[Rfam]
RNA sequence: UCAUAGUGAUGGCAAACCUUUAGAAAUAAAGGGACGCAAAGUUAGAAACCUAAAGUGAAAACAAUGGUUGUUCGGCUGCAACA
Numbered sequence: 001u002c003a004u005a006g007u008g009a010u011g012g013c014a015a016a017c018c019u020u021u022a023g024a025a026a027u028a029a030a031g032g033g034a035c036g037c038a039a040a041g042u043u044a045g046a047a048a049c050c051u052a053a054a055g056u057g058a059a060a061a062c063a064a065u066g067g068u069u070g071u072u073c074g075g076c077u078g079c080a081a082c083a
Stems, first nucleotide, its partner, number of pairs: 012037002017032006040077004045073003048068003055062002